[Rfam]
RNA: let-7 microRNA precursor family
Organism: Dicaeum eximium
RNA sequence: UGAGGCUGAGGUAGUAGAUUGAAUAGUUGUGGAGUCCAGUCCUCCCUCUGAGCUAACUAUACAAUCUACUGUCUUUCCUAA
Numbered sequence: 001u002g003a004g005g006c007u008g009a010g011g012u013a014g015u016a017g018a019u020u021g022a023a024u025a026g027u028u029g030u031g032g033a034g035u036c037c038a039g040u041c042c043u044c045c046c047u048c049u050g051a052g053c054u055a056a057c058u059a060u061a062c063a064a065u066c067u068a069c070u071g072u073c074u075u076u077c078c079u080a081a
Stems, first nucleotide, its partner, number of pairs: 001081001003079003008075014023060005032044003046052002